[Rfam]
RNA: Qrr RNA
RNA sequence: CGACCCUUAUUAAGCCGAGGGUCACCUAGCCAACUGACGUUGUUAGUGAAUAAUAUUGUUCACAAAAUAUAGAUGCCAAUCGCGAUUAUUGCGGUUGGCUUUUUUUUU
Numbered sequence: 001c002g003a004c005c006c007u008u009a010u011u012a013a014g015c016c017g018a019g020g021g022u023c024a025c026c027u028a029g030c031c032a033a034c035u036g037a038c039g040u041u042g043u044u045a046g047u048g049a050a051u052a053a054u055a056u057u058g059u060u061c062a063c064a065a066a067a068u069a070u071a072g073a074u075g076c077c078a079a080u081c082g083c084g085a086u087u088a089u090u091g092c093g094g095u096u097g098g099c100u101u102u103u104u105u106u107u108u
Stems, first nucleotide, its partner, number of pairs: 002023005040072004046063007076098008